[Rfam]
RNA sequence: CCUUCCGAGGAGCGUUGCGACGGGCGCACAAGGCCCGCCAGGCUCGGAACCAUCUUCAAACCGCGCUCACGUUAC
Numbered sequence: 001c002c003u004u005c006c007g008a009g010g011a012g013c014g015u016u017g018c019g020a021c022g023g024g025c026g027c028a029c030a031a032g033g034c035c036c037g038c039c040a041g042g043c044u045c046g047g048a049a050c051c052a053u054c055u056u057c058a059a060a061c062c063g064c065g066c067u068c069a070c071g072u073u074a075c
Stems, first nucleotide, its partner, number of pairs: 003049006021037005
Dot-bracket structure: ..((((((............(((((.......)))))......))))))..........................

The record is a 75-nucleotide RNA from Zemynaea arenosa, which matches "SAH (S-adenosyl-L-homocysteine) riboswitch aptamer" in Rfam. On this family, see Wang et al., Mol Cell 2008: "Riboswitches that sense S-adenosylhomocysteine and activate genes involved in coenzyme recycling". It scores 64 bits against the family's covariance model.